[Rfam]
RNA sequence: CGUCUUAUGUCUGAAAGGGCGACGGUGAAAGCCGGAACGAGAAGUCAGCAGAGGUCGUAGUAGUCGGAGGCUGGGCCGGGAAGGCCGAAUACCGCCGACGAAGGGC
Number, nucleotide and partner (000 for none) at each position: 001c027002g026003u000004c000005u024006u000007a000008u021009g020010u019011c018012u017013g000014a000015a000016a000017g012018g011019g010020c009021g008022a000023c000024g005025g000026u002027g001028a000029a000030a000031g000032c000033c000034g000035g000036a000037a000038c000039g000040a000041g000042a000043a000044g000045u052046c051047a000048g000049c000050a000051g046052a045053g000054g106055u105056c104057g000058u000059a000060g000061u000062a000063g099064u098065c097066g096067g095068a000069g000070g000071c000072u000073g000074g000075g000076c000077c000078g000079g000080g000081a000082a000083g000084g000085c000086c000087g000088a000089a000090u000091a000092c000093c000094g000095c067096c066097g065098a064099c063100g000101a000102a000103g000104g056105g055106c054
The record is a 106-nucleotide RNA sequence from Massilia cavernae, which matches "Group II catalytic intron D1-D4-1" in Rfam. About the family: Group II introns are found in rRNA, tRNA and mRNA of organelles in fungi, plants and protists, and also in mRNA in bacteria. Taxonomically the source falls in Massilia (Bacteria, Pseudomonadota, Burkholderiales, Oxalobacteraceae). For this family Rfam cites "The ins and outs of group II introns" (Bonen and Vogel, Trends Genet, 2001). The pairing is the family consensus, mapped onto this sequence. Rfam 15.1 lists 2,508 matches to the family in 1,144 species. The match comes from Rfam's covariance-model search (43 bits).